[Rfam]
Background
A member of the RNA family "Glycine riboswitch aptamer" from Halopseudomonas yangmingensis, 84 nucleotides long. Lineage of the source: Bacteria > Pseudomonadati > Pseudomonadales > Pseudomonadaceae > Halopseudomonas.

RNA sequence: CAUGCCACCGCAGGAGAGAGGGCUCUGCCCCGCCGAAGGCGCAAACUCCCAUAAACGCUCAGGCACAGUUACUGCGGGUAUCAU
Numbered sequence: 001c002a003u004g005c006c007a008c009c010g011c012a013g014g015a016g017a018g019a020g021g022g023c024u025c026u027g028c029c030c031c032g033c034c035g036a037a038g039g040c041g042c043a044a045a046c047u048c049c050c051a052u053a054a055a056c057g058c059u060c061a062g063g064c065a066c067a068g069u070u071a072c073u074g075c076g077g078g079u080a081u082c083a084u
Stems, first nucleotide, its partner, number of pairs: 008077006020030004032064003035060002039058003045052001